Description
The record is a 40-nucleotide RNA sequence from Salinibacillus xinjiangensis, which matches "Ribosomal protein L19 leader" in Rfam. The family's RNA type in Rfam is cis-regulatory leader. Rfam links the family to the GO term regulation of gene expression. The match comes from Rfam's covariance-model search (36 bits).

RNA sequence: ACGAUACUCCGCUGCUAGAUUCGUGAGGCAAGAGUGUUAG
Numbered sequence: 001a002c003g004a005u006a007c008u009c010c011g012c013u014g015c016u017a018g019a020u021u022c023g024u025g026a027g028g029c030a031a032g033a034g035u036g037u038u039a040g
Stems, first nucleotide, its partner, number of pairs: 003038007013030002015027002018024001